[Rfam]
RNA sequence: ACCUGUCUCGAAAGUGACUGUGGAGUGACUCUGGUCUCCAGGUCAUUGAUAGAACAGGAAGAUCAAGUGAAAGACUUUCCCGUGUUUGCUGGAUCCUGUUCCUGACAAACCCUGACUCUUUCACACA
Numbered sequence: 001a002c003c004u005g006u007c008u009c010g011a012a013a014g015u016g017a018c019u020g021u022g023g024a025g026u027g028a029c030u031c032u033g034g035u036c037u038c039c040a041g042g043u044c045a046u047u048g049a050u051a052g053a054a055c056a057g058g059a060a061g062a063u064c065a066a067g068u069g070a071a072a073g074a075c076u077u078u079c080c081c082g083u084g085u086u087u088g089c090u091g092g093a094u095c096c097u098g099u100u101c102c103u104g105a106c107a108a109a110c111c112c113u114g115a116c117u118c119u120u121u122c123a124c125a126c127a
Stems, first nucleotide, its partner, number of pairs: 002058005007052002013047007022039004067124008084110005089104001091102003